The family of this 403-nucleotide sequence from Tamaricihabitans halophyticus is "Bacterial RNase P class A".
[Rfam]
RNA sequence: CGAGUCGGCAGGGCGGCCGCGGCGGCGGAGUGAUCCUCCCCGUCGAGGAAAGUCCGGACUCCGUAGGGCAGGGUGGUUGCUAACGGCAACCCGGGGUAACUCGCGGGAAAGUGCCACAGAAAACAGACCGCCCGCCGAGCACGCGUGUUCGGCGGGUAAGGGUGAAACGGUGGUGUAAGAGACCACCAGCAUCCCGGGUGACCGGGAUGGCUCGGUAAACCCCACCCGGAGCAAGGCCAAAAGGAAGUACAACUUCUGCGCGAGCGGUUGAGGGCGGCCCGUCCGAUGCUCGCGGGUAGGCCGCUGGAGCCUGCCGGCAACGGUAGGCCUAGAUGGAUGGCCGUCCCCCGGGCGACCGCUGGUCGAUCGGGGACAGGAUCCGGCUUAUAUGCCGGCUCGUCCG
Dot-bracket structure: ((((((((((((((((((.((((((.((........)).))))))....[[[.[[[[[((((...[[[[.((((((((((.....)))))(((((....)))).)((...(((((............((((((((((((((....))))))))))))..)).......((((((.......)))))).(((((((((....)))))))).)..)))..)))))))))))))...((((.....................((((((......((((.]]]]))))...)))))).....))))......((((((((....))))))))..........))))))).................................]]]]]]]].).))))))))))....
Numbered sequence: 001c002g003a004g005u006c007g008g009c010a011g012g013g014c015g016g017c018c019g020c021g022g023c024g025g026c027g028g029a030g031u032g033a034u035c036c037u038c039c040c041c042g043u044c045g046a047g048g049a050a051a052g053u054c055c056g057g058a059c060u061c062c063g064u065a066g067g068g069c070a071g072g073g074u075g076g077u078u079g080c081u082a083a084c085g086g087c088a089a090c091c092c093g094g095g096g097u098a099a100c101u102c103g104c105g106g107g108a109a110a111g112u113g114c115c116a117c118a119g120a121a122a123a124c125a126g127a128c129c130g131c132c133c134g135c136c137g138a139g140c141a142c143g144c145g146u147g148u149u150c151g152g153c154g155g156g157u158a159a160g161g162g163u164g165a166a167a168c169g170g171u172g173g174u175g176u177a178a179g180a181g182a183c184c185a186c187c188a189g190c191a192u193c194c195c196g197g198g199u200g201a202c203c204g205g206g207a208u209g210g211c212u213c214g215g216u217a218a219a220c221c222c223c224a225c226c227c228g229g230a231g232c233a234a235g236g237c238c239a240a241a242a243g244g245a246a247g248u249a250c251a252a253c254u255u256c257u258g259c260g261c262g263a264g265c266g267g268u269u270g271a272g273g274g275c276g277g278c279c280c281g282u283c284c285g286a287u288g289c290u291c292g293c294g295g296g297u298a299g300g301c302c303g304c305u306g307g308a309g310c311c312u313g314c315c316g317g318c319a320a321c322g323g324u325a326g327g328c329c330u331a332g333a334u335g336g337a338u339g340g341c342c343g344u345c346c347c348c349c350g351g352g353c354g355a356c357c358g359c360u361g362g363u364c365g366a367u368c369g370g371g372g373a374c375a376g377g378a379u380c381c382g383g384c385u386u387a388u389a390u391g392c393c394g395g396c397u398c399g400u401c402c403g
Stems, first nucleotide, its partner, number of pairs: 001399010011388001012345007020045006027038002050386003054383005059231004066280004071227005076090005091105001092103004106222002111220002113216003128161002130157012169187006189211001190209008235302004260293006272284004309328008